[Rfam]
RNA sequence: GAGACACUCUUCUGGGGCAAGGCAUGCUUCAGUGGGGCUUUGGUGCUCACUGAGUCUGCCCCUGAGUGUGUCCCU
Number, nucleotide and partner (000 for none) at each position: 001g074002a000003g072004a071005c070006a069007c068008u000009c066010u065011u064012c000013u000014g062015g061016g060017g059018c058019a057020a000021g056022g055023c054024a000025u000026g000027c000028u000029u053030c052031a051032g050033u049034g048035g047036g046037g044038c043039u000040u000041u000042g000043g038044u037045g000046c036047u035048c034049a033050c032051u031052g030053a029054g023055u022056c021057u019058g018059c017060c016061c015062c014063u000064g011065a010066g009067u000068g007069u006070g005071u004072c003073c000074c001075u000
Rfam assigns this 75-nucleotide sequence from Myotis lucifugus to the family "mir-9229 microRNA precursor family". The family's consensus secondary structure was predicted with RNAalifold. Lineage of the source: Eukaryota > Craniata > Gnathostomata > Laurasiatheria > Myotis.